[Rfam]
RNA sequence: UCGACUUGAUGUAACUGGCGACUAGUGGAACAACCACAAUGGAGCAUCAAGACAUAAGGCCGGUCGCCUGGGCAAAGAGC
Numbered sequence: 001u002c003g004a005c006u007u008g009a010u011g012u013a014a015c016u017g018g019c020g021a022c023u024a025g026u027g028g029a030a031c032a033a034c035c036a037c038a039a040u041g042g043a044g045c046a047u048c049a050a051g052a053c054a055u056a057a058g059g060c061c062g063g064u065c066g067c068c069u070g071g072g073c074a075a076a077g078a079g080c
Stems, first nucleotide, its partner, number of pairs: 003053001005051008015041001017068005025037004059073003
A member of the RNA family "ZMP/ZTP riboswitch aptamer (pfl RNA motif)" from Paenibacillus psychroresistens, 80 nucleotides long. On this family, see Jones and Ferre-D'Amare, Nat Struct Mol Biol 2015: "Recognition of the bacterial alarmone ZMP through long-distance association of two RNA subdomains". The base pairs follow the family's consensus structure, which is taken from published work. It scores 60 bits against the family's covariance model.